Rfam assigns this 116-nucleotide sequence from Tyzzerella sp. An114 to the family "FMN riboswitch aptamer (RFN element)".
Taxonomically the source falls in Tyzzerella (Bacteria, Bacillota, Clostridia, Lachnospiraceae).
The base pairs follow the family's consensus structure, which is taken from published work.

RNA sequence: GAUAAUCUUCAGGGCAGGGUGUAAUUCCCGAUUGGCGGUAAAGUCCGCGAGCAUUUUUGCAUGAUUUGGUGCAAUUCCAAAACCAACAGUUAAAGUCUGGAUAGAAGAAGAUAGCA
Number, nucleotide and partner (000 for none) at each position: 001g000002a000003u114004a000005a112006u111007c110008u109009u108010c107011a000012g000013g000014g000015c000016a000017g029018g028019g027020u000021g000022u000023a000024a000025u000026u000027c019028c018029c017030g000031a096032u095033u085034g084035g048036c047037g046038g045039u000040a000041a000042a000043g083044u082045c038046c037047g036048c035049g000050a000051g000052c000053a000054u000055u000056u000057u000058u000059g000060c000061a000062u000063g000064a000065u081066u080067u079068g078069g077070u000071g000072c000073a000074a000075u000076u000077c069078c068079a067080a066081a065082a044083c043084c034085a033086a000087c099088a098089g097090u000091u000092a000093a000094a000095g032096u031097c089098u088099g087100g000101a000102u000103a000104g000105a000106a000107g010108a009109a008110g007111a006112u005113a000114g003115c000116a000